Small nucleolar RNA SNORA53: a 198-nucleotide sequence from Mytilus coruscus. About the family: The snoRNA ACA53 belongs to the H/ACA family of pseudouridylation guide snoRNAs. Lineage of the source: Eukaryota > Eumetazoa > Mollusca > Autobranchia > Mytilus. Rfam 15.1 lists 1,090 matches to the family in 800 species.
[Rfam]
RNA sequence: UACACACUUCCUUAGAUCCGCCUUUGGGACAAAGUCGUGGAUGUCUGAAGUGACCAUGUCCAGCAACUUUAUUGUUGUACCAUCGAAGGCGCUUGAGUCAUUGGUGUGUAAUAUCAGUAUACCUCAGACUACAGACUUGGGACUGUUGCAGAUCUUUAUUGAUCACUAUGGCAAUAGUUGGCUGUUUUCUGGGACAAA
Numbered sequence: 001u002a003c004a005c006a007c008u009u010c011c012u013u014a015g016a017u018c019c020g021c022c023u024u025u026g027g028g029a030c031a032a033a034g035u036c037g038u039g040g041a042u043g044u045c046u047g048a049a050g051u052g053a054c055c056a057u058g059u060c061c062a063g064c065a066a067c068u069u070u071a072u073u074g075u076u077g078u079a080c081c082a083u084c085g086a087a088g089g090c091g092c093u094u095g096a097g098u099c100a101u102u103g104g105u106g107u108g109u110a111a112u113a114u115c116a117g118u119a120u121a122c123c124u125c126a127g128a129c130u131a132c133a134g135a136c137u138u139g140g141g142a143c144u145g146u147u148g149c150a151g152a153u154c155u156u157u158a159u160u161g162a163u164c165a166c167u168a169u170g171g172c173a174a175u176a177g178u179u180g181g182c183u184g185u186u187u188u189c190u191g192g193g194a195c196a197a198a
Stems, first nucleotide, its partner, number of pairs: 002109007011097005019091008027061005034054005063078005123193003127189002131185001133183002136180001142178008152163003